[Rfam]
RNA: SL2 RNA
Organism: Strongylus vulgaris
RNA sequence: GGUUUUAUCCCAGUAUCUCAAGGUACUAAGGGCGUCUGACCUACCGCUUAUGGUUGCGUCGAAACCUAAAUUUUUGGAGCGCUUUCUCGGGGUUACCAAGAAGGCAAA
Numbered sequence: 001g002g003u004u005u006u007a008u009c010c011c012a013g014u015a016u017c018u019c020a021a022g023g024u025a026c027u028a029a030g031g032g033c034g035u036c037u038g039a040c041c042u043a044c045c046g047c048u049u050a051u052g053g054u055u056g057c058g059u060c061g062a063a064a065c066c067u068a069a070a071u072u073u074u075u076g077g078a079g080c081g082c083u084u085u086c087u088c089g090g091g092g093u094u095a096c097c098a099a100g101a102a103g104g105c106a107a108a
Stems, first nucleotide, its partner, number of pairs: 007035002009031002016025001018023001037061004041056001043054003083106001085104003091097002